Description: A member of the RNA family "Small nucleolar RNA Z152/R70/R12/" from Phtheirospermum japonicum, 98 nucleotides long.
[Rfam]
RNA sequence: AAUGCAAUGAUGAGAUUAAGCACCCUUGUGGUGUCAAGGGCAGUGGAUUAACGUCCAUGAGCCUAUUAAUUAAACGACUUAUCCUUCCACUGAGCAUU
Numbered sequence: 001a002a003u004g005c006a007a008u009g010a011u012g013a014g015a016u017u018a019a020g021c022a023c024c025c026u027u028g029u030g031g032u033g034u035c036a037a038g039g040g041c042a043g044u045g046g047a048u049u050a051a052c053g054u055c056c057a058u059g060a061g062c063c064u065a066u067u068a069a070u071u072a073a074a075c076g077a078c079u080u081a082u083c084c085u086u087c088c089a090c091u092g093a094g095c096a097u098u
Base pairs, nucleotide, nucleotide: 001098002097003096004095005094
Dot-bracket structure: (((((........................................................................................)))))
Description: Gene Ontology terms of the family: RNA processing and nucleolus. It scores 77 bits against the family's covariance model.